Background
The family of this 131-nucleotide RNA sequence from Gloeothece verrucosa is "Guanidine-I riboswitch aptamer". From the family's description: This family represents a conserved RNA structure found upstream of the ykkC and yxkD genes in Bacillus subtilis and related genes in other bacteria. The function of this family is unclear although it has been suggested that it may function to switch on efflux pumps and detoxification systems in response to harmful environmental molecules. The pairing is the family consensus, mapped onto this sequence. The match comes from Rfam's covariance-model search (80 bits).
RNA sequence: AAAAAAAGCUUCUAGGGUUCCGAUUUCCUGGAAAUGUCUGGUCCAAGAGAAGCGGGCUGCCUUAAAAGAAUUAUUGUUACAAGAUAAAUAUUUAGUAGGUGGCUACACGGCGGGAAAAAAACCCGGGAGGA
Dot-bracket structure: .......(((((..((...((((((((...)))))..).)).))....))))).((((((((..................................)))))))).(.[...(((.......))).)..]..